[Rfam]
RNA sequence: ACGCUUGAGGAGCGUUGCGACGGAUCAUUCCGCCAGGCUCAAGCAUUCCAGGGUAUGCCGCGUUCGCGCGGCACCAUGAAACGGCGCUCACCUUAG
Numbered sequence: 001a002c003g004c005u006u007g008a009g010g011a012g013c014g015u016u017g018c019g020a021c022g023g024a025u026c027a028u029u030c031c032g033c034c035a036g037g038c039u040c041a042a043g044c045a046u047u048c049c050a051g052g053g054u055a056u057g058c059c060g061c062g063u064u065c066g067c068g069c070g071g072c073a074c075c076a077u078g079a080a081a082c083g084g085c086g087c088u089c090a091c092c093u094u095a096g
Stems, first nucleotide, its partner, number of pairs: 003044006021032004
The record is a 96-nucleotide RNA sequence from Bordetella sp. N, which matches "SAH (S-adenosyl-L-homocysteine) riboswitch aptamer" in Rfam. For this family Rfam cites "Riboswitches that sense S-adenosylhomocysteine and activate genes involved in coenzyme recycling" (Wang et al., Mol Cell, 2008). The source organism's lineage runs through Bacteria, Pseudomonadota, Betaproteobacteria, Burkholderiales and Bordetella. The match comes from Rfam's covariance-model search (52 bits). Pairs were carried over by alignment from the consensus structure, which is taken from published work.